Shown here is a 73-nucleotide RNA sequence from Rasamsonia emersonii, a member of the family "tRNA". Taxonomically the source falls in Rasamsonia emersonii (Eukaryota, Eurotiomycetes, Eurotiomycetidae, Eurotiales). The family's RNA type in Rfam is transfer RNA.

RNA sequence: GCCUCUGUAGUGUAGUGGUUCAUCACGACGGAUUCUGAUUCCGUAAACCCUGGUUCGAUUCCAGGCAGGGGCU
Numbered sequence: 001g002c003c004u005c006u007g008u009a010g011u012g013u014a015g016u017g018g019u020u021c022a023u024c025a026c027g028a029c030g031g032a033u034u035c036u037g038a039u040u041c042c043g044u045a046a047a048c049c050c051u052g053g054u055u056c057g058a059u060u061c062c063a064g065g066c067a068g069g070g071g072c073u
Base pairs, nucleotide, nucleotide: 001072002071003070004069005068006067007066010026011025012024028044029043030042031041032040049065050064051063052062053061